[Rfam]
RNA sequence: GAUAUGCGAUGAAGCGGGAGGUUGCUGCUCUGAGAAGCAGGUAAUUUCCGCCGAGUAUGUCCGAUUUUAAACCGGGCGACAA
Numbered sequence: 001g002a003u004a005u006g007c008g009a010u011g012a013a014g015c016g017g018g019a020g021g022u023u024g025c026u027g028c029u030c031u032g033a034g035a036a037g038c039a040g041g042u043a044a045u046u047u048c049c050g051c052c053g054a055g056u057a058u059g060u061c062c063g064a065u066u067u068u069a070a071a072c073c074g075g076g077c078g079a080c081a082a
Stems, first nucleotide, its partner, number of pairs: 014051003018048004025040005058081004065076003